glmS glucosamine-6-phosphate activated ribozyme aptamer: a 191-nucleotide RNA sequence from Pelotomaculum propionicicum. From the family's description: This entry contains a glucosamine-6-phosphate activated ribozyme that is found in the mRNA for GlmS. GlmS is an enzyme that uses fructose-6-phosphate and glutamine to generate glucosamine-6-phosphate. On this family, see Hampel and Tinsley, Biochemistry 2006: "Evidence for preorganization of the glmS ribozyme ligand binding pocket". The family's consensus secondary structure is taken from published work. The family's RNA type in Rfam is riboswitch.

RNA sequence: AACUAAAUACAAGCGCCAGAAUCCUUAUUCAGUCUCUAACGUCCGACAUCCGACAUCUGACGACCGAAUUGGGGUUGACGAGGAGGGGGUUAAUCGAAUUUUUCGGCGGGUGCCCCCCGGUCCGGCCGGACCGUCAACGGUAUUACAAAACCACCGGGCAACCGGUGGGACAAAAUUGCCAGCGGCCAGCG
Dot-bracket structure: ...................((((((.(.(.....................................).).))))))........(((((....((((.....))))......)))))((((((....)))))).....((((.(......(((((((....)))))))......).))))...........